About this RNA: The record is a 71-nucleotide RNA from Nezara viridula, which matches "mir-137 microRNA precursor family" in Rfam.
RNA sequence: GCUGGCCCCGCGUAUUCUUGGGGAACUAACACUGUUUUUGCUGUUAUUGCUUGAGAAUACACGUAGCUAAC
Numbered sequence: 001g002c003u004g005g006c007c008c009c010g011c012g013u014a015u016u017c018u019u020g021g022g023g024a025a026c027u028a029a030c031a032c033u034g035u036u037u038u039u040g041c042u043g044u045u046a047u048u049g050c051u052u053g054a055g056a057a058u059a060c061a062c063g064u065a066g067c068u069a070a071c
Stems, first nucleotide, its partner, number of pairs: 001071001003069003009063002012060011025048001027046005032040001
Notes: A search with the family's covariance model found it, with a score of 67 bits. For this family Rfam cites "Evolution, biogenesis, expression, and target predictions of a substantially expanded set of Drosophila microRNAs" (Ruby et al., Genome Res, 2007). Clan: mir-137 clan. Gene Ontology terms of the family: miRNA-mediated post-transcriptional gene silencing and RISC complex.